Arthropod 7SK RNA: a 249-nucleotide RNA from Agrilus planipennis.
The literature on the family includes a 2008 paper in Mol Biol Evol by Gruber et al., "Arthropod 7SK RNA".
The base pairs follow the family's consensus structure, which is taken from published work.
The family is grouped with related families in Rfam's "7SK clan".
[Rfam]
RNA sequence: GGAGGUGUUCGUGAUGGCAUUAGCUGAACAUCGAUCGCUUGCGUUUCAUAGGCAGAUCUGCUCAGUGGGUGGCGUCACCAAGUGGUUUCAUUGUCAGCUAAGAGCGUCGUCGAUGCCUUUGUUCGCUCGACUUCGAUCCUGGCUCUCAUGAAUUCAUAAAUUCUUCCAAAUUUAAAUGGGGGGCCGGUCUUAAAGUAAAAUACACCUCCAAGUAACGGCACUACAGUUCGUAGUAUGCCAUUUUUUUUU
Numbered sequence: 001g002g003a004g005g006u007g008u009u010c011g012u013g014a015u016g017g018c019a020u021u022a023g024c025u026g027a028a029c030a031u032c033g034a035u036c037g038c039u040u041g042c043g044u045u046u047c048a049u050a051g052g053c054a055g056a057u058c059u060g061c062u063c064a065g066u067g068g069g070u071g072g073c074g075u076c077a078c079c080a081a082g083u084g085g086u087u088u089c090a091u092u093g094u095c096a097g098c099u100a101a102g103a104g105c106g107u108c109g110u111c112g113a114u115g116c117c118u119u120u121g122u123u124c125g126c127u128c129g130a131c132u133u134c135g136a137u138c139c140u141g142g143c144u145c146u147c148a149u150g151a152a153u154u155c156a157u158a159a160a161u162u163c164u165u166c167c168a169a170a171u172u173u174a175a176a177u178g179g180g181g182g183g184c185c186g187g188u189c190u191u192a193a194a195g196u197a198a199a200a201u202a203c204a205c206c207u208c209c210a211a212g213u214a215a216c217g218g219c220a221c222u223a224c225a226g227u228u229c230g231u232a233g234u235a236u237g238c239c240a241u242u243u244u245u246u247u248u249u
Base pairs, nucleotide, nucleotide: 001209002208003207004206005205006204007203008202011078012077013076014075015074024065025064026063029060030059033058034057035056036055037053038052039051040050217239218238219237220234221233222232223231224230
Rfam classes the family as a non-coding RNA gene.